[Rfam]
RNA: Small nucleolar RNA SNORD121A
RNA sequence: GUCCAAAAUACAGUGAUACUGACUUUUCCAGGCACAUAUUUGAUUGUUCUGUGUGGAAAAUGACUCUUGCUGAGUGAUUUUUGGAU
Numbered sequence: 001g002u003c004c005a006a007a008a009u010a011c012a013g014u015g016a017u018a019c020u021g022a023c024u025u026u027u028c029c030a031g032g033c034a035c036a037u038a039u040u041u042g043a044u045u046g047u048u049c050u051g052u053g054u055g056g057a058a059a060a061u062g063a064c065u066c067u068u069g070c071u072g073a074g075u076g077a078u079u080u081u082u083g084g085a086u
Stems, first nucleotide, its partner, number of pairs: 001086006008079001009076003